[Rfam]
RNA sequence: CAAACCCAAUUGGAGCUUCUUUCACUCCAAUUAUGAAAAGAUAUGAUGGUAUGCCUCUGCUGCUAGUUCAUGGAUACCUAUGGUUUCGUAACAACAUGUGUUUGAAGUCAAGGGUUUGCAUGAACUAGGAGAUGAGUUACCUUGAUUUUUUGGUAUUGUUGUGAAGGAAGUUCCAAAUGGUAUCACA
Numbered sequence: 001c002a003a004a005c006c007c008a009a010u011u012g013g014a015g016c017u018u019c020u021u022u023c024a025c026u027c028c029a030a031u032u033a034u035g036a037a038a039a040g041a042u043a044u045g046a047u048g049g050u051a052u053g054c055c056u057c058u059g060c061u062g063c064u065a066g067u068u069c070a071u072g073g074a075u076a077c078c079u080a081u082g083g084u085u086u087c088g089u090a091a092c093a094a095c096a097u098g099u100g101u102u103u104g105a106a107g108u109c110a111a112g113g114g115u116u117u118g119c120a121u122g123a124a125c126u127a128g129g130a131g132a133u134g135a136g137u138u139a140c141c142u143u144g145a146u147u148u149u150u151u152g153g154u155a156u157u158g159u160u161g162u163g164a165a166g167g168a169a170g171u172u173c174c175a176a177a178u179g180g181u182a183u184c185a186c187a
Stems, first nucleotide, its partner, number of pairs: 013173008023163003028158002036150001060131002063128003069122004077114001